The family of this 89-nucleotide RNA sequence from Sorghum bicolor is "Small nucleolar RNA Z266".
The organism belongs to Sorghum, within Eukaryota.
On this family, see Chen et al., Nucleic Acids Res 2003: "The high diversity of snoRNAs in plants: identification and comparative study of 120 snoRNA genes from Oryza sativa".
It scores 98 bits against the family's covariance model.
RNA sequence: GGUUGGCUGGAAUGAUGAAUCAAUUAGAUGUGUGAAGUCGCCUUAUGAGCUUAACUUUUGAGGCAUAUAAUUUGUCUGACUGGCCAAUC
Numbered sequence: 001g002g003u004u005g006g007c008u009g010g011a012a013u014g015a016u017g018a019a020u021c022a023a024u025u026a027g028a029u030g031u032g033u034g035a036a037g038u039c040g041c042c043u044u045a046u047g048a049g050c051u052u053a054a055c056u057u058u059u060g061a062g063g064c065a066u067a068u069a070a071u072u073u074g075u076c077u078g079a080c081u082g083g084c085c086a087a088u089c
Stems, first nucleotide, its partner, number of pairs: 001089010